Rfam assigns this 94-nucleotide RNA from Musa balbisiana to the family "Plastid-rps12 3UTR RNA". NCBI's taxonomy places the organism under Eukaryota, Viridiplantae, Streptophyta, Streptophytina, Musa. For this family Rfam cites "Retrograde signaling in plants: A critical review focusing on the GUN pathway and beyond" (Richter et al., Plant Commun, 2023). About the family: Plastid rpl20 is a non-coding RNA (ncRNA) recognised in plastids. The family has 1,299 seed sequences and 1,710 matches in Rfam 15.1.

[Rfam]
RNA sequence: GGUUCCAUGGUGCAAAUCCAAUCACCUAGAUUUGAGAUGAAAAGCAAUUCCCCAUUGGUAGCAAAUAGUAUCCAUUAAGCGGAGGAAAUAGUAU
Numbered sequence: 001g002g003u004u005c006c007a008u009g010g011u012g013c014a015a016a017u018c019c020a021a022u023c024a025c026c027u028a029g030a031u032u033u034g035a036g037a038u039g040a041a042a043a044g045c046a047a048u049u050c051c052c053c054a055u056u057g058g059u060a061g062c063a064a065a066u067a068g069u070a071u072c073c074a075u076u077a078a079g080c081g082g083a084g085g086a087a088a089u090a091g092u093a094u
Stems, first nucleotide, its partner, number of pairs: 008020003050084001052082002054075002057072004062068001
Dot-bracket structure: .......(((.......))).............................(.((((.((((.(.....))))).)).....)).)..........